[Rfam]
The family of this 73-nucleotide sequence from Myotis myotis is "mir-9242 microRNA precursor family". Rfam links the family to the GO terms RISC complex and miRNA-mediated post-transcriptional gene silencing. Pairs were carried over by alignment from the consensus structure, which was predicted with RNAalifold.

RNA sequence: GGCCUUCUUCUGCAGGGUGAUCGAUUGUGGAGGCCCCCCACCCCCGCAAUUGAUUGCCUUGCAGAGGGUGGCC
Numbered sequence: 001g002g003c004c005u006u007c008u009u010c011u012g013c014a015g016g017g018u019g020a021u022c023g024a025u026u027g028u029g030g031a032g033g034c035c036c037c038c039c040a041c042c043c044c045c046g047c048a049a050u051u052g053a054u055u056g057c058c059u060u061g062c063a064g065a066g067g068g069u070g071g072c073c
Stems, first nucleotide, its partner, number of pairs: 001073004006068025